[Rfam]
RNA sequence: GCACAACCGCAGGGGAGCGCCGCAGCGCUGAGAGUGUGGGCACCAGGUCCACAGACCCUCCAACCUGAUCCGGGUCAUGCCGGCGCAGGGAGCCGGUCCACUUUCGCCG
Numbered sequence: 001g002c003a004c005a006a007c008c009g010c011a012g013g014g015g016a017g018c019g020c021c022g023c024a025g026c027g028c029u030g031a032g033a034g035u036g037u038g039g040g041c042a043c044c045a046g047g048u049c050c051a052c053a054g055a056c057c058c059u060c061c062a063a064c065c066u067g068a069u070c071c072g073g074g075u076c077a078u079g080c081c082g083g084c085g086c087a088g089g090g091a092g093c094c095g096g097u098c099c100a101c102u103u104u105c106g107c108c109g
Stems, first nucleotide, its partner, number of pairs: 006097004011059004017028004035053007064089004070083004

TPP riboswitch aptamer (THI element): a 109-nucleotide sequence from Motilibacter rhizosphaerae. Rfam links the family to the GO term thiamine pyrophosphate binding.